The record is a 252-nucleotide RNA from Bacillus sp. SJS, which matches "BsrG" in Rfam.
[Rfam]
RNA sequence: CAAUAGAAUAGGGGACUCAAGGGUGGACGGUACACUCCCGGUGAAAGGGGGUGGUGCCUAUAACGGUUUUUCAAGCGCUGAUGUUUGCUAUUUCGUUUACGAAUCUUGUGAUUGCCAUUUUGGCGUUUAACCAUAAAAAAUAAUCCACCCUUGAGUUGACGGCUCGGCGGGUGGAUUAUCUUCGUUUUGACCGAUCCCCCUUGCAGGGAACCUUUCUAUUGAGGGGCCGUCUGGUGUGCAAUCACCAGGCGG
Numbered sequence: 001c002a003a004u005a006g007a008a009u010a011g012g013g014g015a016c017u018c019a020a021g022g023g024u025g026g027a028c029g030g031u032a033c034a035c036u037c038c039c040g041g042u043g044a045a046a047g048g049g050g051g052u053g054g055u056g057c058c059u060a061u062a063a064c065g066g067u068u069u070u071u072c073a074a075g076c077g078c079u080g081a082u083g084u085u086u087g088c089u090a091u092u093u094c095g096u097u098u099a100c101g102a103a104u105c106u107u108g109u110g111a112u113u114g115c116c117a118u119u120u121u122g123g124c125g126u127u128u129a130a131c132c133a134u135a136a137a138a139a140a141u142a143a144u145c146c147a148c149c150c151u152u153g154a155g156u157u158g159a160c161g162g163c164u165c166g167g168c169g170g171g172u173g174g175a176u177u178a179u180c181u182u183c184g185u186u187u188u189g190a191c192c193g194a195u196c197c198c199c200c201u202u203g204c205a206g207g208g209a210a211c212c213u214u215u216c217u218a219u220u221g222a223g224g225g226g227c228c229g230u231c232u233g234g235u236g237u238g239c240a241a242u243c244a245c246c247a248g249g250c251g252g
Base pairs, nucleotide, nucleotide: 001221002220003219004218005217007215008214011211016155017154018153019152020151021150022149023148025145026144033053034052036051037050038049039048062119063118065116066115067114093111094110095109096108165184166183167182198208199207227252228251229250230249231248232247233246234245235244236243

The family has 6 seed sequences and 614 matches in Rfam 15.1. The match comes from Rfam's covariance-model search (90 bits). bsrE, bsrG and bsrH pair through intermolecular interactions with antisense sRNAs. They form type I toxin/antitoxin system that includes an mRNA encoding for a short, toxic peptide (bsrE, bsrG and bsrH) and an antitoxin that is comprised of an antisense RNA. bsrG encodes a 39-amino-acid toxin, and the 180 nucleotide antisense sRNA called SR4 acts as the antitoxin (they overlap by 123 nucleotides). SR4 interaction with the 3'UTR of bsrG RNA promotes bsrG degradation and inhibits its translation. BsrG interferes with cell envelope biosynthesis, causes membrane invaginations and delocalisation of the cell wall synthesis and initiates autolysis. bsrE RNA encodes 30 amino-acid toxin peptide. The organism belongs to Bacillus, within Bacteria.